[Rfam]
A member of the RNA family "ALIL pseudoknot" from Terrabacter aerolatus, 156 nucleotides long.
The literature on the family includes a 2008 paper in J Biol Chem by Mazauric et al., "Apical loop-internal loop RNA pseudoknots: a new type of stimulator of -1 translational frameshifting in bacteria".
The family's consensus secondary structure is taken from published work.
RNA sequence: CGCGUUUUUCGCGGCGGCGGAGCUCGACCGCAAGCUGAAGUAGGCACCGCUGUGCCGACUGCGGUGCUCGUCGAGUACAUCGACGAGCACCGCGACCGGUUCGGGGUCGAGCCGAUCUGCACGGUCCUGUCGGGGGCCGGCAUGCAGAUCGCCCCG
Numbered sequence: 001c002g003c004g005u006u007u008u009u010c011g012c013g014g015c016g017g018c019g020g021a022g023c024u025c026g027a028c029c030g031c032a033a034g035c036u037g038a039a040g041u042a043g044g045c046a047c048c049g050c051u052g053u054g055c056c057g058a059c060u061g062c063g064g065u066g067c068u069c070g071u072c073g074a075g076u077a078c079a080u081c082g083a084c085g086a087g088c089a090c091c092g093c094g095a096c097c098g099g100u101u102c103g104g105g106g107u108c109g110a111g112c113c114g115a116u117c118u119g120c121a122c123g124g125u126c127c128u129g130u131c132g133g134g135g136g137c138c139g140g141c142a143u144g145c146a147g148a149u150c151g152c153c154c155c156g
Stems, first nucleotide, its partner, number of pairs: 016056001020055001102156005113151002116148006
Rfam 15.1 lists 2,146 matches to the family in 1,098 species. Taxonomically the source falls in Terrabacter (Bacteria, Bacillati, Actinomycetota, Micrococcales). A search with the family's covariance model found it, with a score of 61 bits.